Rfam assigns this 76-nucleotide sequence from Proteus mirabilis to the family "MicA sRNA".
Rfam links the family to the GO term mRNA binding.
Pairs were carried over by alignment from the consensus structure, which was predicted with WAR.
Nucleotides: 076
Stems, first nucleotide, its partner, number of pairs: 023040002027036002049072007
Number, partner (000 for none) and nucleotide at each position: 001000g002000a003000a004000u005000a006000c007000g008000c009000g010000c011000a012000a013000a014000a015000u016000g017000u018000u019000a020000u021000c022000a023040u024039c025000c026000c027036u028035a029000u030000u031000u032000c033000u034000c035028u036027a037000u038000a039024g040023a041000a042000u043000u044000u045000a046000u047000u048000c049072a050071g051070c052069c053068a054067c055066a056000c057000a058000a059000a060000u061000u062000u063000u064000a065000g066055u067054g068053u069052g070051g071050c072049u073000u074000u075000u076000u